[Rfam]
Description:
The family of this 56-nucleotide sequence from Pyrococcus horikoshii is "Small nucleolar RNA sR49". For this family Rfam cites "Homologs of small nucleolar RNAs in Archaea" (Omer et al., Science, 2000). The base pairs follow the family's consensus structure, which was predicted with RNAalifold. The family's RNA type in Rfam is C/D-box small nucleolar RNA.
RNA sequence: GGCGAUGAAGAACUGGAUCCGAGCUGAUCUCAUGAUGAAGGAGGUUUAACCUGAGC
Numbered sequence: 001g002g003c004g005a006u007g008a009a010g011a012a013c014u015g016g017a018u019c020c021g022a023g024c025u026g027a028u029c030u031c032a033u034g035a036u037g038a039a040g041g042a043g044g045u046u047u048a049a050c051c052u053g054a055g056c
Stems, first nucleotide, its partner, number of pairs: 002056002007051001010047005018042003